[Rfam]
RNA sequence: AGACCGCAGUUGCGUUAUAGGGUUCAGUUAUAUAAAGCCCCGAUUUAUCGGGGUUUUUUGUUAUCUGACUACAGAAUAACUGGGCUUUAGGCCCUUUUUUU
Number, nucleotide and partner (000 for none) at each position: 001a000002g000003a000004c000005c000006g000007c000008a000009g000010u000011u000012g000013c000014g000015u000016u000017a000018u000019a000020g000021g000022g000023u000024u000025c000026a000027g000028u000029u000030a000031u000032a000033u000034a057035a056036a055037g054038c053039c052040c051041c050042g049043a000044u000045u000046u000047a000048u000049c042050g041051g040052g039053g038054u037055u036056u035057u034058u000059u000060g000061u000062u000063a000064u000065c000066u000067g000068a000069c000070u000071a000072c000073a000074g000075a000076a000077u000078a000079a000080c000081u000082g094083g093084g092085c091086u000087u000088u000089a000090g000091g085092c084093c083094c082095u000096u000097u000098u000099u000100u000101u000